[Rfam]
Notes: Rfam assigns this 82-nucleotide RNA from Oncorhynchus tshawytscha to the family "mir-19 microRNA precursor family". Its family is annotated with RISC complex and miRNA-mediated post-transcriptional gene silencing in the Gene Ontology. The match comes from Rfam's covariance-model search (52 bits). A reference for the family is Lagos-Quintana et al. (2001), "Identification of novel genes coding for small expressed RNAs", Science. Lineage of the source: Eukaryota > Eumetazoa > Teleostomi > Actinopteri > Oncorhynchus.
RNA sequence: GGACCCGGUCAGCUUUGCAGGGUGGGCAGUCAGCCUUUUUGUAGGAGCAGCUGUGCAAACCCAAGCAAAACUGACUGUGACC
Numbered sequence: 001g002g003a004c005c006c007g008g009u010c011a012g013c014u015u016u017g018c019a020g021g022g023u024g025g026g027c028a029g030u031c032a033g034c035c036u037u038u039u040u041g042u043a044g045g046a047g048c049a050g051c052u053g054u055g056c057a058a059a060c061c062c063a064a065g066c067a068a069a070a071c072u073g074a075c076u077g078u079g080a081c082c
Stems, first nucleotide, its partner, number of pairs: 004079001006077007014069005020062002023058001026056003032052003